A member of the RNA family "Rhodo-rpoB RNA" from Tranquillimonas rosea, 93 nucleotides long.
[Rfam]
RNA sequence: GGAUCGGGCGGCGGCCUGUGGGAGGGUCGCCAGGGAUUGAUCCGGUCCCCCUGUCUUCGAGAGCGUGCCGCCCGCGGCCCCGGCGGCCGGCGC
Numbered sequence: 001g002g003a004u005c006g007g008g009c010g011g012c013g014g015c016c017u018g019u020g021g022g023a024g025g026g027u028c029g030c031c032a033g034g035g036a037u038u039g040a041u042c043c044g045g046u047c048c049c050c051c052u053g054u055c056u057u058c059g060a061g062a063g064c065g066u067g068c069c070g071c072c073c074g075c076g077g078c079c080c081c082g083g084c085g086g087c088c089g090g091c092g093c
Stems, first nucleotide, its partner, number of pairs: 001043005010031008065093006072086003